[Rfam]
RNA sequence: AGACUCGUGAUGUAACGGUUAGCAUACAAGGUUUUGAUCCUUGUUGUAAAGGUUCAAAUCCUUUCGAGUCUU
Numbered sequence: 001a002g003a004c005u006c007g008u009g010a011u012g013u014a015a016c017g018g019u020u021a022g023c024a025u026a027c028a029a030g031g032u033u034u035u036g037a038u039c040c041u042u043g044u045u046g047u048a049a050a051g052g053u054u055c056a057a058a059u060c061c062u063u064u065c066g067a068g069u070c071u072u
Stems, first nucleotide, its partner, number of pairs: 001071007010025004027043005048064005
RNA: tRNA